Annotation
The record is a 47-nucleotide RNA sequence from Parasutterella excrementihominis, which matches "DUF3800-XI RNA" in Rfam. Rfam's curators write: Actinobacteria, Firmicutes, Proteobacteria, Spirochaetes (1 example). By type it is a small RNA. The sequence is in the family's curated seed alignment.
[Rfam]
RNA sequence: AGGGCUGGUCGAGAGACCCUGGUCCUUCACAGGCGGGGGUGGGGUCC
Numbered sequence: 001a002g003g004g005c006u007g008g009u010c011g012a013g014a015g016a017c018c019c020u021g022g023u024c025c026u027u028c029a030c031a032g033g034c035g036g037g038g039g040u041g042g043g044g045u046c047c
Stems, first nucleotide, its partner, number of pairs: 001026006007018004